[Rfam]
RNA: ODC internal ribosome entry site (IRES)
RNA sequence: AUUUUCACUGCUGCAGCAGGGGCACGCACACCUUUCGGUGGGACUUGGAAUUCCUAGAGAAUUGCCUUUGUGAAAAGCUGGCAUAAUUUCUUUAAAUUUCAUCUCUUAGUUUCCCUUGUAAGUAUUCAUGGUUGUUGCAGGCUUAUCUUAUUAGGAGUUACUAAGUAUU
Number, nucleotide and partner (000 for none) at each position: 001a000002u000003u000004u000005u000006c081007a000008c000009u000010g078011c077012u076013g000014c000015a000016g000017c070018a069019g068020g067021g066022g065023c064024a063025c000026g062027c000028a000029c000030a000031c000032c000033u000034u000035u000036c000037g000038g000039u000040g055041g054042g053043a052044c000045u000046u000047g000048g000049a000050a000051u000052u043053c042054c041055u040056a000057g000058a000059g000060a000061a000062u026063u024064g023065c022066c021067u020068u019069u018070g017071u000072g000073a000074a000075a000076a012077g011078c010079u000080g000081g006082c000083a000084u000085a000086a169087u000088u167089u000090c165091u164092u163093u000094a000095a000096a000097u000098u157099u156100c155101a000102u000103c000104u000105c000106u000107u000108a000109g000110u000111u000112u000113c000114c000115c000116u000117u000118g000119u000120a000121a000122g000123u000124a000125u000126u000127c000128a000129u000130g000131g000132u000133u000134g000135u000136u000137g000138c000139a000140g000141g000142c000143u000144u000145a000146u000147c000148u000149u000150a000151u000152u000153a000154g000155g100156a099157g098158u000159u000160a000161c000162u000163a092164a091165g090166u000167a088168u000169u086